[Rfam]
The record is a 520-nucleotide part of an RNA from Gemmata obscuriglobus, which matches "Bacterial small subunit ribosomal RNA" in Rfam. Pairs were carried over by alignment from the consensus structure, which is taken from published work. The literature on the family includes a 2002 paper in BMC Bioinformatics by Cannone et al., "The comparative RNA web (CRW) site: an online database of comparative sequence and structure information for ribosomal, intron, and other RNAs". Lineage of the source: Bacteria > Planctomycetia > Gemmatales > Gemmataceae > Gemmata obscuriglobus.
RNA sequence: AACUUGAAGGGUUUGAUUCUGGCUCAGAACGAACGUUGGCGGCAUGGAUUAGGCAUGCAAGUCGGGGGAAUCCCGCAAGGGGGAACCGGCGUAAGGGGCAGUAAGGCAUGGGUACCUACCCGGGGGUUCGGGAUAGCCAUCAGAGAUGGUGGGUAAUACCGGAUGACCUCGUGAGAGCAAAGAUUCAUCGCCCCCGGAGGGGCCCAUGUGAUAUUAGCUAGUUGGUGGGGUAACGGCCCACCAAGGCGAAGAUGUCUAGCGGGUGUGAGAGCACGACCCGCGCCACUCGCACUGAGACACUGGCGAGACACCUACGGGUGGCUGCAGUCGAGGAUCUUCGGCAAUGGGGGCAACCCUGACCGAGCGAUGCCGCGUGCGCGAUGAAGGCCUUCGGGUUGUAAAGCGCUUUAGUGGGGGAGAAAAGCCGAGAGGUGUGAUCUAUCCCAAAAAUAAGCUCGGGCUAAGUUCGUGCCAGCAGCCGCGGUAAGACGAACCGAGCGAACGUUGUUCGGAAUCACUG
Dot-bracket structure: ........(((((.......))))).((((.((((((.((((((((.....(((.(((..(((..((...((((....))))...)))))......(((......((((((((.((...(((((((.((((.....((((((....))))))......)))).....(((....)))....((....)).)))))))..))))))))))(((....(((..((((((((.......)))))))))))......)))..((((((((....))))...))))))).(((((............))))).((((....))))...)))))).......(.(((...(((((....))))).)))).)).))))))..((((......((((....)))).....))))...(.(((((...(....((....)).....)...)))))....)..(((((......(((((.....((....)).......)))))))))).))))))))))..........